RNA sequence: UUGCUUACCGGUGCGGCAUCUUCAAGAUUCACAUGCUUGUCAACUCUACACGGUUACUGGCUACUGAGAAUCUUGAUGAUGCUGCAUCGGAAAUCAA
Numbered sequence: 001u002u003g004c005u006u007a008c009c010g011g012u013g014c015g016g017c018a019u020c021u022u023c024a025a026g027a028u029u030c031a032c033a034u035g036c037u038u039g040u041c042a043a044c045u046c047u048a049c050a051c052g053g054u055u056a057c058u059g060g061c062u063a064c065u066g067a068g069a070a071u072c073u074u075g076a077u078g079a080u081g082c083u084g085c086a087u088c089g090g091a092a093a094u095c096a097a
Base pairs, nucleotide, nucleotide: 010088011087012086013085014084015083016082017081018080019079020078022076023075024074025073026072027071028070029069030068032066033065

Rfam assigns this 97-nucleotide RNA sequence from Helianthus annuus to the family "mir-172 microRNA precursor family". Its family is annotated with miRNA-mediated post-transcriptional gene silencing and RISC complex in the Gene Ontology. It scores 75 bits against the family's covariance model. mir-172 has been experimentally verified in Arabidopsis thaliana. This family is thought to target mRNAs coding for APETALA2-like transcription factors. The mature sequence is excised from the 3' arm of the hairpin. On this family, see Jones-Rhoades and Bartel, Mol Cell 2004: "Computational Identification of Plant MicroRNAs and Their Targets, Including a Stress-Induced miRNA". The base pairs follow the family's consensus structure, which was predicted with PFOLD.